[Rfam]
RNA sequence: GGCAGUUCUCGGUGAUGCACCCCAGAGUUGGGCUCCCUCCUCUCUGGUUCCUUGGUGUGUCACCCAAGAAAAGCU
Numbered sequence: 001g002g003c004a005g006u007u008c009u010c011g012g013u014g015a016u017g018c019a020c021c022c023c024a025g026a027g028u029u030g031g032g033c034u035c036c037c038u039c040c041u042c043u044c045u046g047g048u049u050c051c052u053u054g055g056u057g058u059g060u061c062a063c064c065c066a067a068g069a070a071a072a073g074c075u
Stems, first nucleotide, its partner, number of pairs: 002074002006070004011064006018057004025050008
Shown here is a 75-nucleotide RNA from Cnephaeus nilssonii, a member of the family "mir-9223 microRNA precursor family".
Lineage of the source: Eukaryota > Amniota > Boreoeutheria > Laurasiatheria > Cnephaeus.